[Rfam]
RNA sequence: GUGGCGGGCCGUGACUGGCGUGUCGAGAUGGGCGUAACCAUCGGGGAGCGGCCUCGUCGCAUCGACGUGUGCCGCGCGCCUGGGCUUCUUGG
Numbered sequence: 001g002u003g004g005c006g007g008g009c010c011g012u013g014a015c016u017g018g019c020g021u022g023u024c025g026a027g028a029u030g031g032g033c034g035u036a037a038c039c040a041u042c043g044g045g046g047a048g049c050g051g052c053c054u055c056g057u058c059g060c061a062u063c064g065a066c067g068u069g070u071g072c073c074g075c076g077c078g079c080c081u082g083g084g085c086u087u088c089u090u091g092g
Stems, first nucleotide, its partner, number of pairs: 003057001006054007015045002017080005028041004069087001071085003
RNA: ZMP/ZTP riboswitch aptamer (pfl RNA motif)
Organism: Streptomyces sp. MMG1533